Overview:
The family of this 171-nucleotide RNA sequence from Firmicutes bacterium CAG:56 is "Clostridiales-1 RNA". It scores 112 bits against the family's covariance model. Rfam 15.1 lists 1,172 matches to the family in 137 species.
RNA sequence: AAAUGCUAGGGUAAAAGAUCAAAAUGUCGUUCUUGCUUGCAAGAUAAGAUAUUUGAGCUUGUAACCCGCUAAAACAUGAGGAGGCAGCGAUUUACAACGUAAAUCUGCGAAUUCCGAAUGUUUUAUAGAAUUGUGGGAGCUACAUUGUAACGGAGCAAUUCGUGGGCAUUU
Numbered sequence: 001a002a003a004u005g006c007u008a009g010g011g012u013a014a015a016a017g018a019u020c021a022a023a024a025u026g027u028c029g030u031u032c033u034u035g036c037u038u039g040c041a042a043g044a045u046a047a048g049a050u051a052u053u054u055g056a057g058c059u060u061g062u063a064a065c066c067c068g069c070u071a072a073a074a075c076a077u078g079a080g081g082a083g084g085c086a087g088c089g090a091u092u093u094a095c096a097a098c099g100u101a102a103a104u105c106u107g108c109g110a111a112u113u114c115c116g117a118a119u120g121u122u123u124u125a126u127a128g129a130a131u132u133g134u135g136g137g138a139g140c141u142a143c144a145u146u147g148u149a150a151c152g153g154a155g156c157a158a159u160u161c162g163u164g165g166g167c168a169u170u171u
Stems, first nucleotide, its partner, number of pairs: 001171007010066003015060003019056002022054007030046001031044005070125008080115004087108002089105007128161007139151001141149002